[Rfam]
RNA sequence: GGGCCCUUAAUAGGGACUUAUGGGGAACACCACCCCGUAGCGGCUAGAACCCGCAUUGGGCUUCUAUUAAGGAGAAAACAAAUG
Numbered sequence: 001g002g003g004c005c006c007u008u009a010a011u012a013g014g015g016a017c018u019u020a021u022g023g024g025g026a027a028c029a030c031c032a033c034c035c036c037g038u039a040g041c042g043g044c045u046a047g048a049a050c051c052c053g054c055a056u057u058g059g060g061c062u063u064c065u066a067u068u069a070a071g072g073a074g075a076a077a078a079c080a081a082a083u084g
Stems, first nucleotide, its partner, number of pairs: 001018002004015003019039007040054004

Shown here is an 84-nucleotide sequence, a member of the family "freshwater-2 RNA".